Record summary:
The record is a 127-nucleotide RNA sequence from Molossus molossus, which matches "Small nucleolar RNA SNORA25" in Rfam.
[Rfam]
RNA sequence: AGGUGAUUUAAGGGAGAGCUUAUGGGACCAAAACCAGGAGUUCUUAACUCUGUGGCCUAAGACUGAGUUUCUCUAUAGGAUGCAAUAGACACUCAAUGGUGCUGUGUUUUCCUGAGGAGAUACAAGA
Numbered sequence: 001a002g003g004u005g006a007u008u009u010a011a012g013g014g015a016g017a018g019c020u021u022a023u024g025g026g027a028c029c030a031a032a033a034c035c036a037g038g039a040g041u042u043c044u045u046a047a048c049u050c051u052g053u054g055g056c057c058u059a060a061g062a063c064u065g066a067g068u069u070u071c072u073c074u075a076u077a078g079g080a081u082g083c084a085a086u087a088g089a090c091a092c093u094c095a096a097u098g099g100u101g102c103u104g105u106g107u108u109u110u111c112c113u114g115a116g117g118a119g120a121u122a123c124a125a126g127a
Base pairs, nucleotide, nucleotide: 002057003056004055006053007052014045015044016043017042018041019040020039021038023037026035070120071119072118073117074116077113078112079111080110085105086104087103088102090101091100092099093098
The family's consensus secondary structure was predicted with RNAfold. From the family's description: ACA25 is a member of the H/ACA class of snoRNA that guide the sites of modification of uridines to pseudouridines.